[Rfam]
RNA sequence: CGAGUGAUCCGUGGCUAAGGAACUCGGCAAAUUGGCCCCGUAACUUCGGGAGAAGGGGCGCCUCCUCCCAUCCAAAAGCGGGAGGGGGCCGCAGUGACCAGGCCCAGGCGACUGUUUAACAAAAACACAGCUCUCUGCGAACUCGUAAGAGGACGUAUAGGGAGUGACACCUGCCCGGUGCCGGAAGGUUAAGGAAGGGGGUUAUCUCGGCCUCGUGCCGGGAGAAGCUCCCGACCGAAGCCCCGGUAAACGGCGGCCGUAACUAUAACGGUCCUAAGGUAGCGAAAUUCCUUGUCGGGUAAGUUCCGACCUGCACGAAUGGUGUAACGACCUGGGCACUGUCUCGGCCACGGGCUCG
Numbered sequence: 001c002g003a004g005u006g007a008u009c010c011g012u013g014g015c016u017a018a019g020g021a022a023c024u025c026g027g028c029a030a031a032u033u034g035g036c037c038c039c040g041u042a043a044c045u046u047c048g049g050g051a052g053a054a055g056g057g058g059c060g061c062c063u064c065c066u067c068c069c070a071u072c073c074a075a076a077a078g079c080g081g082g083a084g085g086g087g088g089c090c091g092c093a094g095u096g097a098c099c100a101g102g103c104c105c106a107g108g109c110g111a112c113u114g115u116u117u118a119a120c121a122a123a124a125a126c127a128c129a130g131c132u133c134u135c136u137g138c139g140a141a142c143u144c145g146u147a148a149g150a151g152g153a154c155g156u157a158u159a160g161g162g163a164g165u166g167a168c169a170c171c172u173g174c175c176c177g178g179u180g181c182c183g184g185a186a187g188g189u190u191a192a193g194g195a196a197g198g199g200g201g202u203u204a205u206c207u208c209g210g211c212c213u214c215g216u217g218c219c220g221g222g223a224g225a226a227g228c229u230c231c232c233g234a235c236c237g238a239a240g241c242c243c244c245g246g247u248a249a250a251c252g253g254c255g256g257c258c259g260u261a262a263c264u265a266u267a268a269c270g271g272u273c274c275u276a277a278g279g280u281a282g283c284g285a286a287a288u289u290c291c292u293u294g295u296c297g298g299g300u301a302a303g304u305u306c307c308g309a310c311c312u313g314c315a316c317g318a319a320u321g322g323u324g325u326a327a328c329g330a331c332c333u334g335g336g337c338a339c340u341g342u343c344u345c346g347g348c349c350a351c352g353g354g355c356u357c358g
Base pairs, nucleotide, nucleotide: 001358002357003356004355009353010352011351012350013349014348015347016346018344019343020342035059036058037057038056039055044049060089061088062087063086064085065084066083067082068081069080071078090094102337103336104335105334106333107332108331109329110328113127114126115125130165131164132163133162134161135160136159137158138155142151143150144149168324169323170322171321173254174253175252178251179250180247181246182245183244184243187242188241189240193236194235197232198231199230200229201228202227205223206222207221208220209219210218211217255273256272257271258270259269260268274278284311294310295309296308297307298306299305
Rfam assigns this 358-nucleotide part of an RNA from Rhodothermus marinus to the family "Bacterial large subunit ribosomal RNA".
The sequence is in the family's curated seed alignment.
On this family, see Cannone et al., BMC Bioinformatics 2002: "The comparative RNA web (CRW) site: an online database of comparative sequence and structure information for ribosomal, intron, and other RNAs".
The family is grouped with related families in Rfam's "LSU clan".
Gene Ontology terms of the family: structural constituent of ribosome and ribosome.